[Rfam]
RNA sequence: AGCAUGAUGAUGAGAAAAAUGUGCCACUGAAUUCAAAAUUCAUGUUGAUAUAUUUAUUAUACAACCUUCAAAGUUCUCUGAAUUGCU
Numbered sequence: 001a002g003c004a005u006g007a008u009g010a011u012g013a014g015a016a017a018a019a020u021g022u023g024c025c026a027c028u029g030a031a032u033u034c035a036a037a038a039u040u041c042a043u044g045u046u047g048a049u050a051u052a053u054u055u056a057u058u059a060u061a062c063a064a065c066c067u068u069c070a071a072a073g074u075u076c077u078c079u080g081a082a083u084u085g086c087u
Base pairs, nucleotide, nucleotide: 001087002086003085004084
The family of this 87-nucleotide RNA is "Small nucleolar RNA R160". The literature on the family includes a 2003 paper in Nucleic Acids Res by Chen et al., "The high diversity of snoRNAs in plants: identification and comparative study of 120 snoRNA genes from Oryza sativa". The base pairs follow the family's consensus structure. The sequence is in the family's curated seed alignment.